[Rfam]
RNA sequence: UCUGAAAGCUGGCGUGGAUACAGAGAAGCCGGCUUUCAGA
Numbered sequence: 001u002c003u004g005a006a007a008g009c010u011g012g013c014g015u016g017g018a019u020a021c022a023g024a025g026a027a028g029c030c031g032g033c034u035u036u037c038a039g040a
Stems, first nucleotide, its partner, number of pairs: 001040006008034001009032005
RNA: MAT2A 3'UTR stem loop D